The record is a 67-nucleotide RNA sequence from Mizuhopecten yessoensis, which matches "mir-2 microRNA precursor family" in Rfam. A search with the family's covariance model found it, with a score of 46 bits. The base pairs follow the family's consensus structure, which was predicted with PFOLD. Gene Ontology terms of the family: miRNA-mediated post-transcriptional gene silencing and RISC complex.
RNA sequence: GGAGAGGUCUAAGUGGCAGUGAUGUGUUGAUACUAACUCAUAUCACAGUCAGCUUUGAUCAGCUUCU
Numbered sequence: 001g002g003a004g005a006g007g008u009c010u011a012a013g014u015g016g017c018a019g020u021g022a023u024g025u026g027u028u029g030a031u032a033c034u035a036a037c038u039c040a041u042a043u044c045a046c047a048g049u050c051a052g053c054u055u056u057g058a059u060c061a062g063c064u065u066c067u
Base pairs, nucleotide, nucleotide: 006060007059008058009057011055012054013053014051015050016049017048019046020045021044022043025042026041027040